[Rfam]
RNA sequence: UUCUUCCGAGGCGGGUUAAGUUCGCGACGUCCAUGUCGCAACACCCGCACUAGCACGUCCUGAGCG
Numbered sequence: 001u002u003c004u005u006c007c008g009a010g011g012c013g014g015g016u017u018a019a020g021u022u023c024g025c026g027a028c029g030u031c032c033a034u035g036u037c038g039c040a041a042c043a044c045c046c047g048c049a050c051u052a053g054c055a056c057g058u059c060c061u062g063a064g065c066g
Stems, first nucleotide, its partner, number of pairs: 011048006024039005053065002056062001

Bacillaceae-1 RNA: a 66-nucleotide sequence from Pseudogracilibacillus auburnensis. NCBI's taxonomy places the organism under Bacteria, Bacilli, Caryophanales, Bacillaceae, Pseudogracilibacillus. Rfam classes the family as a small RNA.